The family of this 84-nucleotide RNA sequence from Lentivirus humimdef1 is "HIV gag stem loop 3 (GSL3)". The family's consensus secondary structure was predicted with PFOLD. Taxonomically the source falls in Lentivirus humimdef1 (Viruses, Riboviria, Pararnavirae, Artverviricota). Gene Ontology term of the family: viral RNA genome packaging. By type it is a cis-regulatory element. The sequence is in the family's curated seed alignment. About the family: This family consists of several HIV gag stem loop 3 (GSL3) sequences. GSL3 is known to direct specific packaging of HIV-1 genomic RNA. Deletion of GSL3 leads to decreases in both viral RNA packaging and dimerisation.
[Rfam]
RNA sequence: GGCCAGGAGGAAAAGAGAAAUAUCAAUUGAAGCAUAUAGUAUGGGCAAGCAGGGAGCUAGAACGAUUCGCAGUUAAUCCUGGCC
Numbered sequence: 001g002g003c004c005a006g007g008a009g010g011a012a013a014a015g016a017g018a019a020a021u022a023u024c025a026a027u028u029g030a031a032g033c034a035u036a037u038a039g040u041a042u043g044g045g046c047a048a049g050c051a052g053g054g055a056g057c058u059a060g061a062a063c064g065a066u067u068c069g070c071a072g073u074u075a076a077u078c079c080u081g082g083c084c
Base pairs, nucleotide, nucleotide: 001084002083003082004081005080006079007078008077